[Rfam]
The family of this 97-nucleotide RNA from Leucobacter tardus is "Bacterial small signal recognition particle RNA". The base pairs follow the family's consensus structure, which is taken from published work. It is annotated as a non-coding RNA gene. Rfam describes the family as follows. The signal recognition particle (SRP) is a universally conserved ribonucleoprotein involved in the co-translational targeting of proteins to membranes.
RNA sequence: ACGGGCCUCCUACGUGGCGCUAUCCUCAGGAACUCCCCCAGGUCGGAAACGAAGCAAGGGUACUGGGGCUCUAGCGGGUGCGUAGGGGGUCUUUUCA
Numbered sequence: 001a002c003g004g005g006c007c008u009c010c011u012a013c014g015u016g017g018c019g020c021u022a023u024c025c026u027c028a029g030g031a032a033c034u035c036c037c038c039c040a041g042g043u044c045g046g047a048a049a050c051g052a053a054g055c056a057a058g059g060g061u062a063c064u065g066g067g068g069c070u071c072u073a074g075c076g077g078g079u080g081c082g083u084a085g086g087g088g089g090u091c092u093u094u095u096c097a
Stems, first nucleotide, its partner, number of pairs: 004091011015078001018076005024068006035060003043052003